[Rfam]
RNA sequence: UAACCAGAGCCAGAAGGCUCUGCUGAAUUCGCAGGAGUCAGCAGAGGCCAUAGUACGUGGACUAUUGCAACAGUUUGCGGAAGGGC
Numbered sequence: 001u002a003a004c005c006a007g008a009g010c011c012a013g014a015a016g017g018c019u020c021u022g023c024u025g026a027a028u029u030c031g032c033a034g035g036a037g038u039c040a041g042c043a044g045a046g047g048c049c050a051u052a053g054u055a056c057g058u059g060g061a062c063u064a065u066u067g068c069a070a071c072a073g074u075u076u077g078c079g080g081a082a083g084g085g086c
Stems, first nucleotide, its partner, number of pairs: 001025002005022007038045002047086003056079008
About this RNA:
This 86-nucleotide sequence from Cohnella endophytica belongs to the Rfam family "Group II catalytic intron D1-D4-1". The match comes from Rfam's covariance-model search (63 bits). From the family's description: Group II introns are found in rRNA, tRNA and mRNA of organelles in fungi, plants and protists, and also in mRNA in bacteria.